RNA sequence: CCUGUGGAUUGUCAAACAAACCGUAGUAGCGGGAAUGCGGCGAGGCGGGACAGGAUGAAGCAGGAA
Dot-bracket structure: (((((...(((((.......(((.....((.........))....))))))))......)))))..

The record is a 66-nucleotide RNA from Aneurinibacillus migulanus, which matches "RAGATH-18 RNA" in Rfam. It scores 59 bits against the family's covariance model. The family's consensus secondary structure is taken from published work.